[Rfam]
RNA sequence: GAGAGCCGAGGCCACGCCGAGUAGGAUCGAGGGUACAGCUCUC
Numbered sequence: 001g002a003g004a005g006c007c008g009a010g011g012c013c014a015c016g017c018c019g020a021g022u023a024g025g026a027u028c029g030a031g032g033g034u035a036c037a038g039c040u041c042u043c
Base pairs, nucleotide, nucleotide: 002042003041004040005039006038011034012033013032015029016028017025018024
Record summary:
Rfam assigns this 43-nucleotide sequence from Mamastrovirus felis to the family "Coronavirus 3' stem-loop II-like motif (s2m)". Rfam's curators put it in the seed alignment. The s2m motif is found in the 3' UTRs of astrovirus, coronavirus and equine rhinovirus genomes. Its function is unknown, but various viral 3' UTR regions have been found to play roles in viral replication and packaging. The seed alignment was expanded in 2020 by Eric Nawrocki. Rfam classes the family as a cis-regulatory element. The family is grouped with related families in Rfam's "Coronavirus 3' UTR". The family's consensus secondary structure is taken from published work.